The family of this 128-nucleotide sequence from Megalops atlanticus is "Small nucleolar RNA SNORA77". From the family's description: ACA63 (SNORA77) is a member of the H/ACA class of snoRNAs that guide the sites of modification of uridines to pseudouridines. This snoRNA was identified by computational screening and its expression in mouse experimentally verified by Northern blot and primer extension analysis. ACA63 is proposed to guide the pseudouridylation of 18S rRNA U814. The family has 19 seed sequences and 843 matches in Rfam 15.1. The organism belongs to Megalops, within Eukaryota. The family's RNA type in Rfam is H/ACA-box small nucleolar RNA.
[Rfam]
RNA sequence: GCAGACUCACUCUGUCCCUCGCUGUACAAUCCAGCUUGGUACUUUUUCUGUCUGCUACAUAAGACCGCAGUGUAUAAAUUCUGCUUGUCUUGUUGUAGGCAAGUGAUUUUAUAGUCUGGAACACAUUA
Numbered sequence: 001g002c003a004g005a006c007u008c009a010c011u012c013u014g015u016c017c018c019u020c021g022c023u024g025u026a027c028a029a030u031c032c033a034g035c036u037u038g039g040u041a042c043u044u045u046u047u048c049u050g051u052c053u054g055c056u057a058c059a060u061a062a063g064a065c066c067g068c069a070g071u072g073u074a075u076a077a078a079u080u081c082u083g084c085u086u087g088u089c090u091u092g093u094u095g096u097a098g099g100c101a102a103g104u105g106a107u108u109u110u111a112u113a114g115u116c117u118g119g120a121a122c123a124c125a126u127u128a
Base pairs, nucleotide, nucleotide: 001055002054003053004052005051006050014042015041017039018038022034023033024032068118069117070116073113074112075111076110077109078108082105083104084103085102086101087100088099